[Rfam]
RNA: MIR5298 microRNA precursor family
RNA sequence: UUAGGUUUUCUUUAUUUUCUUCUGGAAUUUUCCUGGAAUUCUUGUUGUUGAAAGUUGAUGGAGAUGAUAUGAAGAUAAAAAAGAAGAGAAG
Numbered sequence: 001u002u003a004g005g006u007u008u009u010c011u012u013u014a015u016u017u018u019c020u021u022c023u024g025g026a027a028u029u030u031u032c033c034u035g036g037a038a039u040u041c042u043u044g045u046u047g048u049u050g051a052a053a054g055u056u057g058a059u060g061g062a063g064a065u066g067a068u069a070u071g072a073a074g075a076u077a078a079a080a081a082a083g084a085a086g087a088g089a090a091g
Stems, first nucleotide, its partner, number of pairs: 006084004011079009037056004042051002